[Rfam]
Rfam assigns this 95-nucleotide sequence from Clostridium sp. BL8 to the family "Glycine riboswitch aptamer". It scores 54 bits against the family's covariance model. Rfam links the family to the GO term glycine biosynthetic process. Taxonomically the source falls in Clostridium (Bacteria, Bacillati, Eubacteriales, Clostridiaceae).
RNA sequence: UGAUACAACUCUGGAGAGACUACAAUUUGUAGCAUCGAAGAAGUAAUACGGUUUGUACCGUAAAAUCUUUCAGAUAAAAAGACAGAGAAAAGGGU
Numbered sequence: 001u002g003a004u005a006c007a008a009c010u011c012u013g014g015a016g017a018g019a020c021u022a023c024a025a026u027u028u029g030u031a032g033c034a035u036c037g038a039a040g041a042a043g044u045a046a047u048a049c050g051g052u053u054u055g056u057a058c059c060g061u062a063a064a065a066u067c068u069u070u071c072a073g074a075u076a077a078a079a080a081g082a083c084a085g086a087g088a089a090a091a092g093g094g095u
Stems, first nucleotide, its partner, number of pairs: 009087005020032004034075003037071002041069003047062004
Dot-bracket structure: ........(((((......((((.....)))).(((((..(((...((((........))))....))))).))).......)))))........